[Rfam]
RNA sequence: AAAAUAAGGGCGUACAGUGGAUGCCUUGGCACUAAGAGCCGAUGAAGGACGCAAUUAACGGCGAUACGUCAUGGGUAAUUGUAAAUGAAUGAAGAUCCAUGAAUUUCCGAAUGGGGCAACCUACUAUAAUAAACUUAUAGUUUUUUUGAUGUUAAAGUCAAAAAAGGGAACGCAGUGAACUGAAAUAUCUAAGUAACUGUAGGAAAAGAAAGUAACAACGAUUCUGGUAGUAGCGACGAGCGAAACCGGAAGAGCCUGAUACGAAUUACUAGUUAUAAAAUUUUAAAAAACUCGAAGUUUUUGGAAAGAAACAUCAAAGAAGGUGAUAAUCCUGUAGAGGUAAUUUAAAAUCUAGCGUAUCAAAAAGUACGGCGAGACACGAGAAAUCUUGUUGGAAUAUGGGAGGACCAUCUCCUAAGGCUAAAUACUCCUUAGUGACCGAUAGUGAACUAGUACCGUGAGGGAAAGGUGAAAAGAACCCCGGGAGGGGAGUGAAAUAGAUCCUGAAACUGUAUGCCUACAAU
Numbered sequence: 001a002a003a004a005u006a007a008g009g010g011c012g013u014a015c016a017g018u019g020g021a022u023g024c025c026u027u028g029g030c031a032c033u034a035a036g037a038g039c040c041g042a043u044g045a046a047g048g049a050c051g052c053a054a055u056u057a058a059c060g061g062c063g064a065u066a067c068g069u070c071a072u073g074g075g076u077a078a079u080u081g082u083a084a085a086u087g088a089a090u091g092a093a094g095a096u097c098c099a100u101g102a103a104u105u106u107c108c109g110a111a112u113g114g115g116g117c118a119a120c121c122u123a124c125u126a127u128a129a130u131a132a133a134c135u136u137a138u139a140g141u142u143u144u145u146u147u148g149a150u151g152u153u154a155a156a157g158u159c160a161a162a163a164a165a166g167g168g169a170a171c172g173c174a175g176u177g178a179a180c181u182g183a184a185a186u187a188u189c190u191a192a193g194u195a196a197c198u199g200u201a202g203g204a205a206a207a208g209a210a211a212g213u214a215a216c217a218a219c220g221a222u223u224c225u226g227g228u229a230g231u232a233g234c235g236a237c238g239a240g241c242g243a244a245a246c247c248g249g250a251a252g253a254g255c256c257u258g259a260u261a262c263g264a265a266u267u268a269c270u271a272g273u274u275a276u277a278a279a280a281u282u283u284u285a286a287a288a289a290a291c292u293c294g295a296a297g298u299u300u301u302u303g304g305a306a307a308g309a310a311a312c313a314u315c316a317a318a319g320a321a322g323g324u325g326a327u328a329a330u331c332c333u334g335u336a337g338a339g340g341u342a343a344u345u346u347a348a349a350a351u352c353u354a355g356c357g358u359a360u361c362a363a364a365a366a367g368u369a370c371g372g373c374g375a376g377a378c379a380c381g382a383g384a385a386a387u388c389u390u391g392u393u394g395g396a397a398u399a400u401g402g403g404a405g406g407a408c409c410a411u412c413u414c415c416u417a418a419g420g421c422u423a424a425a426u427a428c429u430c431c432u433u434a435g436u437g438a439c440c441g442a443u444a445g446u447g448a449a450c451u452a453g454u455a456c457c458g459u460g461a462g463g464g465a466a467a468g469g470u471g472a473a474a475a476g477a478a479c480c481c482c483g484g485g486a487g488g489g490g491a492g493u494g495a496a497a498u499a500g501a502u503c504c505u506g507a508a509a510c511u512g513u514a515u516g517c518c519u520a521c522a523a524u
Base pairs, nucleotide, nucleotide: 008519009518010517011516012515013514014513015512016511017510023504024469025468028440029439030437031436032435033434034433035432036431037429038428039167040166047108048107049106050063051062052061069102070101071100072099073098074097075096078090079089080088113122114121115120123141124140125139126138127137128136129135143164144163145162146161147160148159149158150157171202172200173199174198175197176196182189183188212219213218222425223250224249225248226247227246233241234240253422254421255420256419267359268358269357278353280351281350282349283348284347285346286345287344291339292338293337297312298311299310300309301308315319321333322332323331370394371393372392373391374390375389376388377387401416402415403414404413405412456463457462479490480489481488482487
Rfam assigns this 524-nucleotide part of an RNA from Coconut lethal yellowing phytoplasma to the family "Bacterial large subunit ribosomal RNA". Pairs were carried over by alignment from the consensus structure, which is taken from published work.